[Rfam]
Record summary
Small nucleolar RNA snoR31/Z110/Z27: a 95-nucleotide RNA from Salix dunnii. About the family: This family contains several related snoRNAs including R31, Z27 and Z110. A search with the family's covariance model found it, with a score of 49 bits. The base pairs follow the family's consensus structure, which was predicted with PFOLD. It is annotated as a C/D-box small nucleolar RNA. A reference for the family is Chen et al. (2003), "The high diversity of snoRNAs in plants: identification and comparative study of 120 snoRNA genes from Oryza sativa", Nucleic Acids Res.

RNA sequence: AUCAUCAAUUGAUGAAAAUGGAAAAAAUUUAGGACACCUUCCUACAUAGCUUUCCUAGCUAUGGAUGAGAAUAAAAUUUCCGUUCUGAUGAUGAU
Numbered sequence: 001a002u003c004a005u006c007a008a009u010u011g012a013u014g015a016a017a018a019u020g021g022a023a024a025a026a027a028u029u030u031a032g033g034a035c036a037c038c039u040u041c042c043u044a045c046a047u048a049g050c051u052u053u054c055c056u057a058g059c060u061a062u063g064g065a066u067g068a069g070a071a072u073a074a075a076a077u078u079u080c081c082g083u084u085c086u087g088a089u090g091a092u093g094a095u
Stems, first nucleotide, its partner, number of pairs: 001095007
The source organism's lineage runs through Eukaryota, Euphyllophyta, Gunneridae, Salicaceae and Salix.